RNA sequence: CAUAUAUGCAUGGGGAGCUGGGUAAUCCGGCUGAGAAAGAACAGUGCGUUCUGACCCAAUGAACCUGAACUGGGUAAUGCCAGCGGAGGGAUGCUGCUUUUCGAUUGG
Numbered sequence: 001c002a003u004a005u006a007u008g009c010a011u012g013g014g015g016a017g018c019u020g021g022g023u024a025a026u027c028c029g030g031c032u033g034a035g036a037a038a039g040a041a042c043a044g045u046g047c048g049u050u051c052u053g054a055c056c057c058a059a060u061g062a063a064c065c066u067g068a069a070c071u072g073g074g075u076a077a078u079g080c081c082a083g084c085g086g087a088g089g090g091a092u093g094c095u096g097c098u099u100u101u102c103g104a105u106u107g108g
Stems, first nucleotide, its partner, number of pairs: 008094003011058004017031005038052005064089003070083004

TPP riboswitch aptamer (THI element): a 108-nucleotide RNA from Pelotomaculum schinkii.
It scores 74 bits against the family's covariance model.
Rfam describes the family as follows. Vitamin B(1) in its active form thiamin pyrophosphate (TPP) is an essential coenzyme that is synthesised by coupling of pyrimidine and thiazole moieties in bacteria. The previously detected thiamin-regulatory element, thi box was extended, resulting in a new, highly conserved RNA secondary structure, the THI element, which is widely distributed in eubacteria and also occurs in some archaea.